[Rfam]
RNA sequence: GUUUCUCUUCAUCACGUACAAGUCUUUCGCCUUUUACUAAAGACUUCCGUGGAGAGCAACGCUAAAGAGUUGCAUGUUAUUUUUGGUGGGCUUUGCUUGCGUUGCUA
Numbered sequence: 001g002u003u004u005c006u007c008u009u010c011a012u013c014a015c016g017u018a019c020a021a022g023u024c025u026u027u028c029g030c031c032u033u034u035u036a037c038u039a040a041a042g043a044c045u046u047c048c049g050u051g052g053a054g055a056g057c058a059a060c061g062c063u064a065a066a067g068a069g070u071u072g073c074a075u076g077u078u079a080u081u082u083u084u085g086g087u088g089g090g091c092u093u094u095g096c097u098u099g100c101g102u103u104g105c106u107a
Stems, first nucleotide, its partner, number of pairs: 001060003005056007020046008087107001089106003094101001
A member of the RNA family "U5 spliceosomal RNA" from Menidia menidia, 107 nucleotides long.
For this family Rfam cites "The uRNA database" (Zwieb, Nucleic Acids Res, 1997).
A search with the family's covariance model found it, with a score of 70 bits.
It is annotated as a spliceosomal small nuclear RNA.